[Rfam]
RNA sequence: CGGGACCAACCGACGUUAGGGAAUUCGGCAAUUUAGUCCCGUACGUUCGCAAUAAGGGAUGCCUGCCUUUGACGAGGCAGGUCGCAGUGACUCGGACGCUCCGACUGUCUAGUAACAACACAGGUGACCGCAAAUCCGCAAGGACUCGUACGGUCACUGAAUCCUGCCCAGUGCGGGUAUCUGAACACCAGGUACAACUGGACGAAGGACCCGUCAACGGCGGGGGUAACUAUGACCCUCUUAAGGUAGCGUAGUACCUUGCCGCUUCAGUAGCGGCUUGCAUGAAUGGAUCAACGAGAGCGUCGCUGUCCCAACGUUGGGCCCGGUGAACUGUACGUUCCAGUGCGGAGUCUGGAGA
Numbered sequence: 001c002g003g004g005a006c007c008a009a010c011c012g013a014c015g016u017u018a019g020g021g022a023a024u025u026c027g028g029c030a031a032u033u034u035a036g037u038c039c040c041g042u043a044c045g046u047u048c049g050c051a052a053u054a055a056g057g058g059a060u061g062c063c064u065g066c067c068u069u070u071g072a073c074g075a076g077g078c079a080g081g082u083c084g085c086a087g088u089g090a091c092u093c094g095g096a097c098g099c100u101c102c103g104a105c106u107g108u109c110u111a112g113u114a115a116c117a118a119c120a121c122a123g124g125u126g127a128c129c130g131c132a133a134a135u136c137c138g139c140a141a142g143g144a145c146u147c148g149u150a151c152g153g154u155c156a157c158u159g160a161a162u163c164c165u166g167c168c169c170a171g172u173g174c175g176g177g178u179a180u181c182u183g184a185a186c187a188c189c190a191g192g193u194a195c196a197a198c199u200g201g202a203c204g205a206a207g208g209a210c211c212c213g214u215c216a217a218c219g220g221c222g223g224g225g226g227u228a229a230c231u232a233u234g235a236c237c238c239u240c241u242u243a244a245g246g247u248a249g250c251g252u253a254g255u256a257c258c259u260u261g262c263c264g265c266u267u268c269a270g271u272a273g274c275g276g277c278u279u280g281c282a283u284g285a286a287u288g289g290a291u292c293a294a295c296g297a298g299a300g301c302g303u304c305g306c307u308g309u310c311c312c313a314a315c316g317u318u319g320g321g322c323c324c325g326g327u328g329a330a331c332u333g334u335a336c337g338u339u340c341c342a343g344u345g346c347g348g349a350g351u352c353u354g355g356a357g358a
Base pairs, nucleotide, nucleotide: 001325002324003323004322010320011319012318013317014316015315016314017313019311020310021309036060037059038058039057040056045050061082062081063080064079065078066077067076068075069074083087095304096303097302098301099300100299101298102296103295106120107119108118123158124157125156126155127154128153129152130151131148135144136143137142161291162290163289164288166221167220168219171218172217173214174213175212176211177210180209181208182207188201189200190199191198222240223239224238225237226236227235241245261277262276263275264274265273266272339356340355341354342353343352